[Rfam]
RNA sequence: CGGUGUGAGGAAGUCGUACGUCAUGUGGAGUGAUGGUGGAAUAUGCUGUGUAGCGUGUGACCCCCUCCCCCCCU
Numbered sequence: 001c002g003g004u005g006u007g008a009g010g011a012a013g014u015c016g017u018a019c020g021u022c023a024u025g026u027g028g029a030g031u032g033a034u035g036g037u038g039g040a041a042u043a044u045g046c047u048g049u050g051u052a053g054c055g056u057g058u059g060a061c062c063c064c065c066u067c068c069c070c071c072c073c074u
Stems, first nucleotide, its partner, number of pairs: 003071001005069001007067001009065002013061009023051005
Shown here is a 74-nucleotide RNA sequence from Ornithorhynchus anatinus, a member of the family "mir-1421 microRNA precursor family". A search with the family's covariance model found it, with a score of 50 bits. Pairs were carried over by alignment from the consensus structure, which was predicted with RNAalifold. Rfam links the family to the GO terms RISC complex and miRNA-mediated post-transcriptional gene silencing.